[Rfam]
RNA: Small nucleolar RNA snoR27
Organism: Olea europaea
RNA sequence: AUGGAUUGAUAACGUGAGAAUAAACUACCUUAUCUAUCUGAAAUUUCCAAACUGGGGCUGAAGAAUACAUUAAGCUUGCUGAGAUCCAAU
Numbered sequence: 001a002u003g004g005a006u007u008g009a010u011a012a013c014g015u016g017a018g019a020a021u022a023a024a025c026u027a028c029c030u031u032a033u034c035u036a037u038c039u040g041a042a043a044u045u046u047c048c049a050a051a052c053u054g055g056g057g058c059u060g061a062a063g064a065a066u067a068c069a070u071u072a073a074g075c076u077u078g079c080u081g082a083g084a085u086c087c088a089a090u
Stems, first nucleotide, its partner, number of pairs: 002088005